[Rfam]
RNA sequence: UGAGCACGGCCGCCGAAUCCGCGAAGUCAGCGGAACCGGGGAACCACGUUUCUGGGGUGAAUCAACGCGUUCGCGCGUCGUAGGGCACUUCCCAGCCCGAACCCGUCAGCUAACCCGGUAGGCGGAAUGGAAGCGACGC
Numbered sequence: 001u002g003a004g005c006a007c008g009g010c011c012g013c014c015g016a017a018u019c020c021g022c023g024a025a026g027u028c029a030g031c032g033g034a035a036c037c038g039g040g041g042a043a044c045c046a047c048g049u050u051u052c053u054g055g056g057g058u059g060a061a062u063c064a065a066c067g068c069g070u071u072c073g074c075g076c077g078u079c080g081u082a083g084g085g086c087a088c089u090u091c092c093c094a095g096c097c098c099g100a101a102c103c104c105g106u107c108a109g110c111u112a113a114c115c116c117g118g119u120a121g122g123c124g125g126a127a128u129g130g131a132a133g134c135g136a137c138g139c
Stems, first nucleotide, its partner, number of pairs: 011124004018034005035119006045054002055104003063080001065078002083098004

Record summary
The record is a 139-nucleotide sequence from Streptosporangium subroseum, which matches "c-di-AMP riboswitch aptamer (ydaO/yuaA leader)" in Rfam. Lineage of the source: Bacteria > Bacillati > Actinomycetes > Streptosporangiaceae > Streptosporangium. A search with the family's covariance model found it, with a score of 92 bits.